[Rfam]
RNA sequence: UUAAAGAUACUUCCGUACGAGGCUUCACGCGAAAGUGAAGGGGUGAAAUUCCCAUGA
Dot-bracket structure: ...........(((......))(((.((......)).)))(((.......))))...
Numbered sequence: 001u002u003a004a005a006g007a008u009a010c011u012u013c014c015g016u017a018c019g020a021g022g023c024u025u026c027a028c029g030c031g032a033a034a035g036u037g038a039a040g041g042g043g044u045g046a047a048a049u050u051c052c053c054a055u056g057a
Stems, first nucleotide, its partner, number of pairs: 012054001013022002023040003027036002041053003
A member of the RNA family "pemK RNA" from Butyricicoccus sp. TM10-16AC, 57 nucleotides long. Rfam classes the family as a cis-regulatory element. The base pairs follow the family's consensus structure, which is taken from published work.